[Rfam]
RNA: Small nucleolar RNA snoR111
Organism: Cynara cardunculus
RNA sequence: UUGAUAAUUUUGAGAGACAUGGACGAUUUGUCUUGUCAUUUUCACAACACAAGGAUAAAGUAAAGAUGGCGAGAUAUCGUUUCAGUCGUCAUUUUUUCCGAUUGACGAUUUGAUUGUUGCUCGUCCACAU
Dot-bracket structure: .....((...((.((((((.........))))))..))..)).........................((((((..((((.....(((((((.((.....)).))))))).)))).....)))).))....